The record is a 299-nucleotide RNA sequence from Pseudaquabacterium pictum, which matches "5' ureB small RNA" in Rfam. Gene Ontology term of the family: negative regulation of gene expression. A reference for the family is Wen et al. (2013), "Helicobacter pylori 5'ureB-sRNA, a cis-encoded antisense small RNA, negatively regulates ureAB expression by transcription termination", J Bacteriol.
[Rfam]
RNA sequence: CCUCGUCGAUCUGCUGCGGGCAGAUGAAAUGGAUGUGGCUGUCGAUGCCGCCGGCGGUGACGAUCAUCCCCUCGCCGGCCAGGAUCUCGGUGCCCGGGCCGAUGACGAUGUCCACGCCCGGCUGCACAUCGGGGUUGCCGGCCUUGCCGAUGGCGGCGAUGCGGUGGCGCUUGAUGCCGAUGUCGGCCUUGACGAUGCCCCAGUGGUCGAUGAUCAGCGCGUUGGUGAUCACCAGGUCGGCGGCCUCGUGCGCACCGGGGCCGUUGGGCGCCUGGCCCUGGCCCAUGCCGUCGCGGAUG
Number, nucleotide and partner (000 for none) at each position: 001c299002c000003u297004c000005g000006u000007c293008g292009a291010u000011c000012u158013g157014c156015u155016g154017c153018g076019g075020g000021c000022a072023g071024a000025u000026g000027a000028a000029a000030u053031g052032g051033a000034u050035g049036u000037g048038g000039c000040u045041g000042u000043c000044g000045a040046u000047g000048c037049c035050g034051c032052c031053g030054g000055c000056g000057g069058u000059g067060a000061c000062g000063a000064u000065c000066a000067u059068c000069c057070c000071c023072u022073c000074g000075c019076c018077g148078g147079c000080c000081a144082g143083g142084a000085u140086c000087u000088c000089g000090g138091u137092g136093c000094c134095c133096g000097g130098g129099c000100c000101g000102a000103u000104g125105a000106c000107g117108a000109u000110g000111u000112c000113c000114a000115c000116g000117c107118c000119c000120g000121g000122c000123u000124g000125c104126a000127c000128a000129u098130c097131g000132g000133g095134g094135u000136u092137g091138c090139c000140g085141g000142c083143c082144u081145u000146g000147c078148c077149g000150a000151u000152g000153g017154c016155g015156g014157c013158g012159a000160u000161g000162c000163g000164g282165u281166g000167g279168c000169g000170c268171u267172u266173g265174a264175u263176g262177c260178c259179g000180a000181u000182g000183u000184c000185g000186g220187c219188c000189u217190u216191g215192a000193c000194g000195a000196u000197g000198c000199c000200c209201c000202a000203g000204u000205g000206g000207u000208c000209g200210a000211u000212g000213a000214u000215c191216a190217g189218c000219g187220c186221g000222u000223u257224g256225g255226u000227g000228a000229u000230c250231a249232c000233c000234a246235g245236g244237u000238c000239g000240g000241c000242g000243g000244c236245c235246u234247c000248g000249u231250g230251c000252g000253c000254a000255c225256c224257g223258g000259g178260g177261c000262c176263g175264u174265u173266g172267g171268g170269c000270g000271c000272c000273u000274g000275g000276c000277c000278c000279u167280g000281g165282c164283c000284c000285a000286u000287g000288c000289c000290g000291u009292c008293g007294c000295g000296g000297a003298u000299g001